[Rfam]
RNA sequence: CGGCUCGAGAGUAUUCGCAUGUUGUGAGGACAGGAGUCAGCAGAAGCCAUAGUAGCCGAACGCCGGGAGUAAUGUCCCGGACAUGGUGAAGGGC
Numbered sequence: 001c002g003g004c005u006c007g008a009g010a011g012u013a014u015u016c017g018c019a020u021g022u023u024g025u026g027a028g029g030a031c032a033g034g035a036g037u038c039a040g041c042a043g044a045a046g047c048c049a050u051a052g053u054a055g056c057c058g059a060a061c062g063c064c065g066g067g068a069g070u071a072a073u074g075u076c077c078c079g080g081a082c083a084u085g086g087u088g089a090a091g092g093g094c
Stems, first nucleotide, its partner, number of pairs: 001024004007018001009016002037044002046094003055087003065078003
RNA: Group II catalytic intron D1-D4-1